[Rfam]
RNA: small nucleolar RNA snoR114
RNA sequence: GAGCUGUGAGGAAUCCUGUGCUCAUUGUGAUGAUAGGGGUCUAUCACUACCCGUCCGAUCUACUCAGACGACAACGAGUGCAUCUUGAGCUU
Numbered sequence: 001g002a003g004c005u006g007u008g009a010g011g012a013a014u015c016c017u018g019u020g021c022u023c024a025u026u027g028u029g030a031u032g033a034u035a036g037g038g039g040u041c042u043a044u045c046a047c048u049a050c051c052c053g054u055c056c057g058a059u060c061u062a063c064u065c066a067g068a069c070g071a072c073a074a075c076g077a078g079u080g081c082a083u084c085u086u087g088a089g090c091u092u
Base pairs, nucleotide, nucleotide: 001092002091003090004089